The record is an 80-nucleotide RNA from Moschus moschiferus, which matches "Small nucleolar RNA U2-19" in Rfam. Rfam 15.1 lists 1,147 matches to the family in 531 species. A search with the family's covariance model found it, with a score of 86 bits. Gene Ontology terms of the family: RNA processing and nucleolus. Taxonomically the source falls in Moschus (Eukaryota, Metazoa, Mammalia, Pecora). The literature on the family includes a 2004 paper in Curr Biol by Tycowski et al., "Guide RNAs with 5' Caps and Novel Box C/D snoRNA-like Domains for Modification of snRNAs in Metazoa".
[Rfam]
RNA sequence: GAUCAAUGAAGAAAAGAGCCAAAUCUGAGCCUCAGCAGAGCUCCCAGUCUACCUGAUGCAUGAUCUCUGUAGUUCUGAGA
Numbered sequence: 001g002a003u004c005a006a007u008g009a010a011g012a013a014a015a016g017a018g019c020c021a022a023a024u025c026u027g028a029g030c031c032u033c034a035g036c037a038g039a040g041c042u043c044c045c046a047g048u049c050u051a052c053c054u055g056a057u058g059c060a061u062g063a064u065c066u067c068u069g070u071a072g073u074u075c076u077g078a079g080a
Stems, first nucleotide, its partner, number of pairs: 029059002032056002037050003
Dot-bracket structure: ............................((.((...(((........)))....)).)).....................